[Rfam]
RNA sequence: AUGCCUCUGUAAAUUUUUUAAGAAUUUAUUAGAUAAAUGGGUAAAUUGCAAAAAACCUUUGCUUCGAUCUUGAUAAAAAAGGUCAAUUUGCAGCGAAUCUUUAUUUGGUAUUAUGUAUUACAUCUAUUAUAUACAUUGAAAUAAAGAGCGUUCAACGACUUAGCUGGUGAGUUAAUACCAACAAUAAUCUAGCACUGUGAAAACAGAGAACCCGAUGACUCUACUGGUCCUUAGGCCUUAUGAAUCCUUUAGCCUCAUACGAAGAACUAAGAAAAAUUUUUAUUUCGCUUGUUCCUCUCCCUAUGGUAGAGCAUCCGAAGGAAAGGAGGCCCCUUUUUUAGCAUCCUUCGCUUAAGCAUAAUUUCUUCUUUAGCGAGCUUAGCGGAAGGUAGCGAUAAAGAGAGUAGAGUUAAUGACAUAGUCUGAACCUAACUGUAAAGUUAGG
Numbered sequence: 001a002u003g004c005c006u007c008u009g010u011a012a013a014u015u016u017u018u019u020a021a022g023a024a025u026u027u028a029u030u031a032g033a034u035a036a037a038u039g040g041g042u043a044a045a046u047u048g049c050a051a052a053a054a055a056c057c058u059u060u061g062c063u064u065c066g067a068u069c070u071u072g073a074u075a076a077a078a079a080a081g082g083u084c085a086a087u088u089u090g091c092a093g094c095g096a097a098u099c100u101u102u103a104u105u106u107g108g109u110a111u112u113a114u115g116u117a118u119u120a121c122a123u124c125u126a127u128u129a130u131a132u133a134c135a136u137u138g139a140a141a142u143a144a145a146g147a148g149c150g151u152u153c154a155a156c157g158a159c160u161u162a163g164c165u166g167g168u169g170a171g172u173u174a175a176u177a178c179c180a181a182c183a184a185u186a187a188u189c190u191a192g193c194a195c196u197g198u199g200a201a202a203a204c205a206g207a208g209a210a211c212c213c214g215a216u217g218a219c220u221c222u223a224c225u226g227g228u229c230c231u232u233a234g235g236c237c238u239u240a241u242g243a244a245u246c247c248u249u250u251a252g253c254c255u256c257a258u259a260c261g262a263a264g265a266a267c268u269a270a271g272a273a274a275a276a277u278u279u280u281u282a283u284u285u286c287g288c289u290u291g292u293u294c295c296u297c298u299c300c301c302u303a304u305g306g307u308a309g310a311g312c313a314u315c316c317g318a319a320g321g322a323a324a325g326g327a328g329g330c331c332c333c334u335u336u337u338u339u340a341g342c343a344u345c346c347u348u349c350g351c352u353u354a355a356g357c358a359u360a361a362u363u364u365c366u367u368c369u370u371u372a373g374c375g376a377g378c379u380u381a382g383c384g385g386a387a388g389g390u391a392g393c394g395a396u397a398a399a400g401a402g403a404g405u406a407g408a409g410u411u412a413a414u415g416a417c418a419u420a421g422u423c424u425g426a427a428c429c430u431a432a433c434u435g436u437a438a439a440g441u442u443a444g445g
Stems, first nucleotide, its partner, number of pairs: 013017001036216001038214003042210001047092006057082004093151002098146001100144002105139005155424001157423004218410008430443005

Group I catalytic intron: a 445-nucleotide RNA sequence from Tetrapyrgos nigripes. Rfam's curators write: Group I catalytic introns are large self-splicing ribozymes. The source organism's lineage runs through Eukaryota, Opisthokonta, Basidiomycota, Agaricomycotina and Tetrapyrgos. The match comes from Rfam's covariance-model search (56 bits). Gene Ontology term of the family: Group I intron splicing.